[Rfam]
Nucleotides: 128
Stems, first nucleotide, its partner, number of pairs: 001055005014042002017039002020036002065121001067119004078109008088100002
Number, partner (000 for none) and nucleotide at each position: 001055g002054c003053a004052c005051c006000u007000c008000a009000g010000c011000a012000a013000a014042c015041c016000c017039u018038g019000u020036c021035c022000u023000c024000c025000u026000g027000u028000c029000u030000g031000u032000g033000u034000u035021g036020g037000a038018c039017a040000u041015g042014g043000c044000c045000a046000a047000u048000g049000a050000u051005g052004g053003u054002g055001c056000c057000a058000u059000a060000g061000u062000g063000a064000c065121u066000c067119a068118a069117a070116g071000u072000a073000u074000a075000u076000c077000c078109a079108g080107g081106u082105g083104g084103a085102c086000c087000u088100c089099c090000c091000u092000c093000u094000c095000u096000a097000u098000u099089g100088g101000a102085g103084u104083c105082u106081g107080u108079c109078u110000c111000u112000a113000c114000a115000g116070c117069u118068u119067u120000u121065a122000c123000a124000c125000a126000g127000u128000u

The family of this 128-nucleotide RNA sequence from Oncorhynchus mykiss is "Small nucleolar RNA SNORA55". NCBI's taxonomy places the organism under Eukaryota, Opisthokonta, Gnathostomata, Euteleostomi, Oncorhynchus. Rfam describes the family as follows. ACA55 is a member of the H/ACA class of snoRNA that guide the sites of modification of uridines to pseudouridines. Pairs were carried over by alignment from the consensus structure, which was predicted with PFOLD.